Rfam assigns this 121-nucleotide RNA sequence from Temnothorax curvispinosus to the family "R2 RNA element". The family's RNA type in Rfam is cis-regulatory element. From the family's description: This family represents the 3' UTR region of the R2 retrotransposable element. Lineage of the source: Eukaryota > Hexapoda > Hymenoptera > Apocrita > Temnothorax. The family has 15 seed sequences and 3,698 matches in Rfam 15.1. Its family is annotated with regulation of reverse transcription in the Gene Ontology.
[Rfam]
RNA sequence: AGUGGAGGUUUUAGCCGGUAGGCCAUGGGUGACGUCGCUUCGGCGAUAUGCGCCCGUGGAAUCCGGCACUACCCCGCCUCGGGCCCGAAAGGCGGGGUGUCUUUUGAAGAUUUCCUCCACU
Numbered sequence: 001a002g003u004g005g006a007g008g009u010u011u012u013a014g015c016c017g018g019u020a021g022g023c024c025a026u027g028g029g030u031g032a033c034g035u036c037g038c039u040u041c042g043g044c045g046a047u048a049u050g051c052g053c054c055c056g057u058g059g060a061a062u063c064c065g066g067c068a069c070u071a072c073c074c075c076g077c078c079u080c081g082g083g084c085c086c087g088a089a090a091g092g093c094g095g096g097g098u099g100u101c102u103u104u105u106g107a108a109g110a111u112u113u114c115c116u117c118c119a120c121u
Stems, first nucleotide, its partner, number of pairs: 001121008014067005023059006034047005069099001072097004